Rfam assigns this 47-nucleotide sequence from Protea cynaroides to the family "Plastid-rpl16 group II-D1 intron".
On this family, see Richter et al., Plant Commun 2023: "Retrograde signaling in plants: A critical review focusing on the GUN pathway and beyond".
The source organism's lineage runs through Eukaryota, Streptophytina, Euphyllophyta, Spermatophyta and Protea.
Its family is annotated with Group II intron splicing in the Gene Ontology.
From the family's description: Plastid-rpl16 is a non-coding RNA (ncRNA) recognised in plastids.
It scores 51 bits against the family's covariance model.
RNA sequence: AAGAAACAUGAGUCAAUAAAGACUGAAGAGAUUGACUCAGGAAACAA
Numbered sequence: 001a002a003g004a005a006a007c008a009u010g011a012g013u014c015a016a017u018a019a020a021g022a023c024u025g026a027a028g029a030g031a032u033u034g035a036c037u038c039a040g041g042a043a044a045c046a047a
Stems, first nucleotide, its partner, number of pairs: 007041001010038008
Dot-bracket structure: ......(..((((((((.............))))))))..)......